The family of this 168-nucleotide sequence from Porphyromonas macacae is "Bacteroidales-1 6S-Bacteroidales RNA suggested". It scores 104 bits against the family's covariance model. Rfam classes the family as a small RNA. The organism belongs to Porphyromonas, within Bacteria. For this family Rfam cites "A high-resolution transcriptome map identifies small RNA regulation of metabolism in the gut microbe Bacteroides thetaiotaomicron" (Ryan et al., Nat Commun, 2020).
RNA sequence: AGCCGCGUUGUUGAUUUGGGAAACUCAGCACUAUAAUAAUUCCGAGGCUUAAAGUUUACACAUUAAUGGCGGGCCGUCGCCCUUCGGGGUUCGGGCGGAUUACAGAGAUGUGGAAACCCUCAAAUCCUGUCUUUCGGAGUUUACGCAAUCCACUUCGCGGCUUCUUAU
Number, nucleotide and partner (000 for none) at each position: 001a000002g000003c000004c000005g000006c000007g000008u000009u000010g000011u000012u000013g000014a000015u000016u000017u000018g000019g000020g000021a000022a000023a000024c000025u000026c000027a000028g000029c000030a000031c000032u000033a000034u000035a000036a000037u000038a000039a000040u000041u000042c000043c000044g000045a000046g000047g000048c000049u000050u000051a000052a000053a000054g117055u116056u115057u114058a000059c112060a111061c110062a109063u108064u107065a000066a000067u104068g103069g000070c000071g000072g000073g000074c098075c097076g096077u095078c000079g000080c089081c088082c087083u000084u000085c000086g000087g082088g081089g080090u000091u000092c000093g000094g000095g077096c076097g075098g074099a000100u000101u000102a000103c068104a067105g000106a000107g064108a063109u062110g061111u060112g059113g000114a057115a056116a055117c054118c000119c000120u000121c000122a000123a000124a000125u000126c000127c000128u000129g000130u000131c000132u000133u000134u000135c000136g000137g000138a000139g000140u000141u000142u000143a000144c000145g000146c000147a000148a000149u000150c000151c000152a000153c000154u000155u000156c000157g000158c000159g000160g000161c000162u000163u000164c000165u000166u000167a000168u000